Rfam assigns this 88-nucleotide sequence from Yersinia enterocolitica to the family "CopA-like RNA". Rfam classes the family as an antisense RNA. For this family Rfam cites "The CTX-M-14 plasmid pHK01 encodes novel small RNAs and influences host growth and motility" (Jiang et al., FEMS Microbiol Ecol, 2017).

RNA sequence: AUAGAGCAACAGCUUCUAUACAGUUUUAAGUAGGCCCCGGUAAUCUUCGACUCCGCCAAGAAUUGAAAGAUUUCCGGGGUUUUUGCUU
Numbered sequence: 001a002u003a004g005a006g007c008a009a010c011a012g013c014u015u016c017u018a019u020a021c022a023g024u025u026u027u028a029a030g031u032a033g034g035c036c037c038c039g040g041u042a043a044u045c046u047u048c049g050a051c052u053c054c055g056c057c058a059a060g061a062a063u064u065g066a067a068a069g070a071u072u073u074c075c076g077g078g079g080u081u082u083u084u085g086c087u088u
Stems, first nucleotide, its partner, number of pairs: 001019005028088004032082009042072006